[Rfam]
RNA sequence: CAUAGUAGCAGCGUUAGUCGGGUAAGAAUCCCGAUGGCCGAAAGAGCAAGGGUUCCUCGGCAAUGCUUAUCAGCCGAGGGUUAGCCGAUCCUAAGGCCCGUCGUAAUUCGAGCGGGUCAAAAGGGAAACUGGUUAAUAUUCCAGUGCCACCGUACAUUGAAAGUCGACGCCUCGGAGCAGCUUGAGCCGGGCAUUCGCCCGGUCGAACCGUCGAAGUUCGUGGAAGCCGUAAUGGCAGGAAGCGAACGAACGUCGGAACAGGGAAACUCAAGUCAAUCUGGGGCCCGUGAAAAGGCGAGUACGGUGUUCGUACCGAGAUCCGACACAGGUGCUCUGGCAGAGGAAGCCAAGGCCUGU
Numbered sequence: 001c002a003u004a005g006u007a008g009c010a011g012c013g014u015u016a017g018u019c020g021g022g023u024a025a026g027a028a029u030c031c032c033g034a035u036g037g038c039c040g041a042a043a044g045a046g047c048a049a050g051g052g053u054u055c056c057u058c059g060g061c062a063a064u065g066c067u068u069a070u071c072a073g074c075c076g077a078g079g080g081u082u083a084g085c086c087g088a089u090c091c092u093a094a095g096g097c098c099c100g101u102c103g104u105a106a107u108u109c110g111a112g113c114g115g116g117u118c119a120a121a122a123g124g125g126a127a128a129c130u131g132g133u134u135a136a137u138a139u140u141c142c143a144g145u146g147c148c149a150c151c152g153u154a155c156a157u158u159g160a161a162a163g164u165c166g167a168c169g170c171c172u173c174g175g176a177g178c179a180g181c182u183u184g185a186g187c188c189g190g191g192c193a194u195u196c197g198c199c200c201g202g203u204c205g206a207a208c209c210g211u212c213g214a215a216g217u218u219c220g221u222g223g224a225a226g227c228c229g230u231a232a233u234g235g236c237a238g239g240a241a242g243c244g245a246a247c248g249a250a251c252g253u254c255g256g257a258a259c260a261g262g263g264a265a266a267c268u269c270a271a272g273u274c275a276a277u278c279u280g281g282g283g284c285c286c287g288u289g290a291a292a293a294g295g296c297g298a299g300u301a302c303g304g305u306g307u308u309c310g311u312a313c314c315g316a317g318a319u320c321c322g323a324c325a326c327a328g329g330u331g332c333u334c335u336g337g338c339a340g341a342g343g344a345a346g347c348c349a350a351g352g353c354c355u356g357u
Stems, first nucleotide, its partner, number of pairs: 017035006036354004044334004050314002055079006064072002086310003090124002095118006101111003128145005148306008163296003169284008180273005186203005208256003217246005226236003262267001320329002335349004
Dot-bracket structure: ................((((((.......))))))((((....((((..((...((((((...((.....)).))))))......(((.((...(((((((((.....))).))))))....))...(((((........)))))..((((((((.......(((...((((((((...(((((.(((((........)))))....(((......(((((....(((.....))).....))))).......))).....(....).)))))...)))))))).........)))..)))))))).)))..)).....((......)).))))((((.......)))).))))...

The record is a 357-nucleotide part of an RNA from Halobacterium salinarum, which matches "Archaeal large subunit ribosomal RNA" in Rfam. The sequence is in the family's curated seed alignment. Gene Ontology terms of the family: ribosome and structural constituent of ribosome. The family's consensus secondary structure is taken from published work.